This 88-nucleotide RNA from Hemiprocne comata belongs to the Rfam family "Small nucleolar RNA SNORD70". Gene Ontology terms of the family: RNA processing and nucleolus. It is annotated as a C/D-box small nucleolar RNA. The family has 21 seed sequences and 1,085 matches in Rfam 15.1. From the family's description: snoRNA HBII-234 belongs to the C/D family of snoRNAs.
[Rfam]
RNA sequence: CAGACUGUUGUCUAUGAAGAAACAUAGUUAAACUGAUAUUAAUGAUUGCAUUCAGUUCCUUCGUCACUACCACUGAGACAACAGAUGG
Numbered sequence: 001c002a003g004a005c006u007g008u009u010g011u012c013u014a015u016g017a018a019g020a021a022a023c024a025u026a027g028u029u030a031a032a033c034u035g036a037u038a039u040u041a042a043u044g045a046u047u048g049c050a051u052u053c054a055g056u057u058c059c060u061u062c063g064u065c066a067c068u069a070c071c072a073c074u075g076a077g078a079c080a081a082c083a084g085a086u087g088g
Stems, first nucleotide, its partner, number of pairs: 001088001003086001005084008